Shown here is a 142-nucleotide RNA from Frischella perrara, a member of the family "FMN riboswitch aptamer (RFN element)". The organism belongs to Frischella, within Bacteria. About the family: The RFN element is a highly conserved domain that is found frequently in the 5'-untranslated regions of prokaryotic mRNAs that encode for flavin mononucleotide (FMN) biosynthesis and transport proteins.
RNA sequence: GAUAAUUCUCAGGGCGGGGUGUAAUUCCCCACCGGUGGUAAUAGCCCACUAGCACUUAGUUUUAUAUUAUAUACGAUUAAGGUUAGCUGAUUUGGUGUGAUUCCAAAGCCGACAGUGAUAGUCUGGAUGGAAGAGAGUUGCU
Numbered sequence: 001g002a003u004a005a006u007u008c009u010c011a012g013g014g015c016g017g018g019g020u021g022u023a024a025u026u027c028c029c030c031a032c033c034g035g036u037g038g039u040a041a042u043a044g045c046c047c048a049c050u051a052g053c054a055c056u057u058a059g060u061u062u063u064a065u066a067u068u069a070u071a072u073a074c075g076a077u078u079a080a081g082g083u084u085a086g087c088u089g090a091u092u093u094g095g096u097g098u099g100a101u102u103c104c105a106a107a108g109c110c111g112a113c114a115g116u117g118a119u120a121g122u123c124u125g126g127a128u129g130g131a132a133g134a135g136a137g138u139u140g141c142u
Base pairs, nucleotide, nucleotide: 003140004139005138006137007136008135009134010133017029018028019027031122032121033111034110035049036048037047038046044109045108052087053086091107092106093105094104095103113125114124115123